XIST RNA A repeat: a 36-nucleotide sequence from Myotis lucifugus. Rfam 15.1 lists 900 matches to the family in 145 species. By type it is a small RNA. On this family, see Duszczyk et al., RNA 2011: "The Xist RNA A-repeat comprises a novel AUCG tetraloop fold and a platform for multimerization". It scores 52 bits against the family's covariance model.
[Rfam]
RNA sequence: UGGCCCACCGGGGCCUAGGAUACCUGCUUUUUUUUU
Numbered sequence: 001u002g003g004c005c006c007a008c009c010g011g012g013g014c015c016u017a018g019g020a021u022a023c024c025u026g027c028u029u030u031u032u033u034u035u036u
Base pairs, nucleotide, nucleotide: 003014004013005012006011018025019024